[Rfam]
RNA sequence: AAAGAAGACCCUGUUGAGCUUGACUCUAGUUUGACAUUGUGAAGAGUCAUGAGAGGUGUAGCAUAGGUGGGAGUCUUCGGACGACAGUGAAAUACCACCACUUUCAUCGACUCUUUACUUAUUCGGUUAAAAGAGAAUUGGCUUCACGGCCUUUUUUCGAAGCAUUAAGCGGAGCCAUUUUAUGGCACCGUGACUCUCCUCGAAGACAGUGUCAAGCGGGGAGUUUGACUGGGGCGGUACAUCUAUCAAAUCGUAACGUAGGUGUCCUAAGGCGAGCUCAGAGAGGACGGAAACCUCUCGUAGAGCAAAAGGGCAAAAGCUUGCUUGAUCUUGACUUUCAGUACGAGUACAGACCGCGAAAGCGUGGCCUAUCGAUCCUUUUAAUCCUGAUUGUUUCAGGUAAGAGGUGUCAGAAAAGUUACCACAGGGAUAACUGGCUUGUGGCAGCCAAGCGUCCAUAGCGACGUUGCUUUUUGAUCCUUCGAUGUCGGCUCUUCCUAUCAUUGCGAAGCAGAAUUCGCCAAGCGUUGGAUUGUUCACCCACUAAUAGGGAACGUGAGCUGGGUUUAGACCGUCGUGAGACAGGUUAGUUUUAC
Numbered sequence: 001a002a003a004g005a006a007g008a009c010c011c012u013g014u015u016g017a018g019c020u021u022g023a024c025u026c027u028a029g030u031u032u033g034a035c036a037u038u039g040u041g042a043a044g045a046g047u048c049a050u051g052a053g054a055g056g057u058g059u060a061g062c063a064u065a066g067g068u069g070g071g072a073g074u075c076u077u078c079g080g081a082c083g084a085c086a087g088u089g090a091a092a093u094a095c096c097a098c099c100a101c102u103u104u105c106a107u108c109g110a111c112u113c114u115u116u117a118c119u120u121a122u123u124c125g126g127u128u129a130a131a132a133g134a135g136a137a138u139u140g141g142c143u144u145c146a147c148g149g150c151c152u153u154u155u156u157u158c159g160a161a162g163c164a165u166u167a168a169g170c171g172g173a174g175c176c177a178u179u180u181u182a183u184g185g186c187a188c189c190g191u192g193a194c195u196c197u198c199c200u201c202g203a204a205g206a207c208a209g210u211g212u213c214a215a216g217c218g219g220g221g222a223g224u225u226u227g228a229c230u231g232g233g234g235c236g237g238u239a240c241a242u243c244u245a246u247c248a249a250a251u252c253g254u255a256a257c258g259u260a261g262g263u264g265u266c267c268u269a270a271g272g273c274g275a276g277c278u279c280a281g282a283g284a285g286g287a288c289g290g291a292a293a294c295c296u297c298u299c300g301u302a303g304a305g306c307a308a309a310a311g312g313g314c315a316a317a318a319g320c321u322u323g324c325u326u327g328a329u330c331u332u333g334a335c336u337u338u339c340a341g342u343a344c345g346a347g348u349a350c351a352g353a354c355c356g357c358g359a360a361a362g363c364g365u366g367g368c369c370u371a372u373c374g375a376u377c378c379u380u381u382u383a384a385u386c387c388u389g390a391u392u393g394u395u396u397c398a399g400g401u402a403a404g405a406g407g408u409g410u411c412a413g414a415a416a417a418g419u420u421a422c423c424a425c426a427g428g429g430a431u432a433a434c435u436g437g438c439u440u441g442u443g444g445c446a447g448c449c450a451a452g453c454g455u456c457c458a459u460a461g462c463g464a465c466g467u468u469g470c471u472u473u474u475u476g477a478u479c480c481u482u483c484g485a486u487g488u489c490g491g492c493u494c495u496u497c498c499u500a501u502c503a504u505u506g507c508g509a510a511g512c513a514g515a516a517u518u519c520g521c522c523a524a525g526c527g528u529u530g531g532a533u534u535g536u537u538c539a540c541c542c543a544c545u546a547a548u549a550g551g552g553a554a555c556g557u558g559a560g561c562u563g564g565g566u567u568u569a570g571a572c573c574g575u576c577g578u579g580a581g582a583c584a585g586g587u588u589a590g591u592u593u594u595a596c
Stems, first nucleotide, its partner, number of pairs: 002594002010428004015424002017420005023224004030216007039118010049107007066099005073082002122204005132197004140152002143149002169191004227240001228238003241263006266367002272324006278304002281299006305314002329353003334348004355364003378406006386400004437478001439476001441475001443471006452462002489564001490562004494556001495553005502527001506521005529543003533539001570588004574583003
RNA: Eukaryotic large subunit ribosomal RNA, nucleotides 2498 to 3093